[Rfam]
Record summary: Guanidine-II riboswitch aptamer (mini-ykkC): a 47-nucleotide RNA from Pseudomonas sp. 21C1. The base pairs follow the family's consensus structure, which is taken from published work.
RNA sequence: CACCCCGGACGACCGGGGUGCAGACCCAAUACCGCGGGACGGCCCGC
Numbered sequence: 001c002a003c004c005c006c007g008g009a010c011g012a013c014c015g016g017g018g019u020g021c022a023g024a025c026c027c028a029a030u031a032c033c034g035c036g037g038g039a040c041g042g043c044c045c046g047c
Stems, first nucleotide, its partner, number of pairs: 001020008034047005